RNA sequence: GGGGUGUGCUCAGAGCAGGUGGCCUGAAGAAUCGCUUCUCUAUUUACAACACAUUCAACAGGAAUCUAGGUUAUUGUGACAAGGGGCACAAAGCUUCUGACCGCCUCUGAGCAGAUGUCCUAUACCU
Number, nucleotide and partner (000 for none) at each position: 001g000002g056003g055004g054005u053006g052007u051008g050009c000010u000011c000012a000013g045014a044015g043016c000017a041018g040019g039020u000021g037022g035023c034024c000025u000026g000027a000028a000029g000030a000031a000032u000033c000034g023035c022036u000037u021038c000039u019040c018041u017042a000043u015044u014045u013046a000047c000048a000049a000050c008051a007052c006053a005054u004055u003056c002057a000058a000059c000060a000061g000062g000063a000064a000065u000066c000067u000068a000069g120070g119071u000072u117073a000074u000075u113076g112077u111078g000079a000080c109081a108082a000083g000084g102085g101086g000087c099088a098089c000090a096091a095092a000093g000094c000095u091096u090097c000098u088099g087100a000101c085102c084103g000104c000105c000106u000107c000108u081109g080110a000111g077112c076113a075114g000115a000116u000117g072118u000119c070120c069121u000122a000123u000124a000125c000126c000127u000